About this RNA: Rfam assigns this 254-nucleotide sequence from Diabrotica balteata to the family "Arthropod 7SK RNA". On this family, see Gruber et al., Mol Biol Evol 2008: "Arthropod 7SK RNA". The family's RNA type in Rfam is non-coding RNA gene. Its Rfam clan is "7SK clan". NCBI's taxonomy places the organism under Eukaryota, Pancrustacea, Neuropteroidea, Chrysomeloidea, Diabrotica.
RNA sequence: GGAGGUGCGUGUCAGUGAUGGCACAGCUGAACAUCGAUCGUUUGGUAUUGCCAAGCUGAUCUGUUCAGUCCAGUGCAGUCACAAAGGUCGAUUCAGUCACCAAUGGACCUGCCGUUGCCUUCGUCGCACGGUAGACAUCCAAUGGUUACUUGAACGUCCGCAAUUUUCCAAAUUUGGGGUUAACGGAUGGGUCGUUUAAAAUUUAUAACACCUCCAUAAUAGGCACUGCAGAAUGGCAGUCUGCCAUUUUUUGA
Numbered sequence: 001g002g003a004g005g006u007g008c009g010u011g012u013c014a015g016u017g018a019u020g021g022c023a024c025a026g027c028u029g030a031a032c033a034u035c036g037a038u039c040g041u042u043u044g045g046u047a048u049u050g051c052c053a054a055g056c057u058g059a060u061c062u063g064u065u066c067a068g069u070c071c072a073g074u075g076c077a078g079u080c081a082c083a084a085a086g087g088u089c090g091a092u093u094c095a096g097u098c099a100c101c102a103a104u105g106g107a108c109c110u111g112c113c114g115u116u117g118c119c120u121u122c123g124u125c126g127c128a129c130g131g132u133a134g135a136c137a138u139c140c141a142a143u144g145g146u147u148a149c150u151u152g153a154a155c156g157u158c159c160g161c162a163a164u165u166u167u168c169c170a171a172a173u174u175u176g177g178g179g180u181u182a183a184c185g186g187a188u189g190g191g192u193c194g195u196u197u198a199a200a201a202u203u204u205a206u207a208a209c210a211c212c213u214c215c216a217u218a219a220u221a222g223g224c225a226c227u228g229c230a231g232a233a234u235g236g237c238a239g240u241c242u243g244c245c246a247u248u249u250u251u252u253g254a
Base pairs, nucleotide, nucleotide: 001215002214003213004212005211006210007209015082016081017080018079019078027068028067029066031064032063033062036061037060038059039058040056041055042054043053222245223244224243225240226239227238228237229236